RNA sequence: CGACCCCAGGAUGGGCGGGGCCACCCGCCGAGUUUAAGCAUAUCAAUAAGCGGAGGAGAAGAAACUUACCAGGAUUCCCCUAGUAACGGCGAGCGAACCGGGAGCGGCCCAGCAUGGGAAUCGGGCUGCCGUGCUGCGGCCCGAAUUGUAGUCUGGAGAAGCGUCCUCAGCGACGGACCGGGCCCAAGUCCCCUGGAAGGGGGCGCCGGGGAGGGUGAGAGCCCCGUUCGGCCCGAACCCUGCCGCAACACGAGGCGCUGUCGGCGAGUCGGGUUGUUUGGGAAUGCAGCCCUAAUCGGGCGAUAAAUUCCGUCCAAGGCUAAAUAUGGGCGAGAGACCGAUAGCGAACAAGUACCGCGAGGGAAAGAUGAAAAGGACUUUGAAAAGAGAGUCAAAGAGUGCUUGAAAUUGCCGGGAGGGAAG
Numbered sequence: 001c002g003a004c005c006c007c008a009g010g011a012u013g014g015g016c017g018g019g020g021c022c023a024c025c026c027g028c029c030g031a032g033u034u035u036a037a038g039c040a041u042a043u044c045a046a047u048a049a050g051c052g053g054a055g056g057a058g059a060a061g062a063a064a065c066u067u068a069c070c071a072g073g074a075u076u077c078c079c080c081u082a083g084u085a086a087c088g089g090c091g092a093g094c095g096a097a098c099c100g101g102g103a104g105c106g107g108c109c110c111a112g113c114a115u116g117g118g119a120a121u122c123g124g125g126c127u128g129c130c131g132u133g134c135u136g137c138g139g140c141c142c143g144a145a146u147u148g149u150a151g152u153c154u155g156g157a158g159a160a161g162c163g164u165c166c167u168c169a170g171c172g173a174c175g176g177a178c179c180g181g182g183c184c185c186a187a188g189u190c191c192c193c194u195g196g197a198a199g200g201g202g203g204c205g206c207c208g209g210g211g212a213g214g215g216u217g218a219g220a221g222c223c224c225c226g227u228u229c230g231g232c233c234c235g236a237a238c239c240c241u242g243c244c245g246c247a248a249c250a251c252g253a254g255g256c257g258c259u260g261u262c263g264g265c266g267a268g269u270c271g272g273g274u275u276g277u278u279u280g281g282g283a284a285u286g287c288a289g290c291c292c293u294a295a296u297c298g299g300g301c302g303a304u305a306a307a308u309u310c311c312g313u314c315c316a317a318g319g320c321u322a323a324a325u326a327u328g329g330g331c332g333a334g335a336g337a338c339c340g341a342u343a344g345c346g347a348a349c350a351a352g353u354a355c356c357g358c359g360a361g362g363g364a365a366a367g368a369u370g371a372a373a374a375g376g377a378c379u380u381u382g383a384a385a386a387g388a389g390a391g392u393c394a395a396a397g398a399g400u401g402c403u404u405g406a407a408a409u410u411g412c413c414g415g416g417a418g419g420g421a422a423g
Stems, first nucleotide, its partner, number of pairs: 024055001025053004035042002065072002076103004087093001106321004112153001115150002118147002121144007158262002160259004165255004170246003174242001175240002179235006188204001190203004207211001214224002271292007298315005355362002378389004

The record is a 423-nucleotide part of an RNA from Eptatretus burgeri, which matches "Eukaryotic large subunit ribosomal RNA" in Rfam. Taxonomically the source falls in Eptatretus (Eukaryota, Eumetazoa, Deuterostomia, Chordata).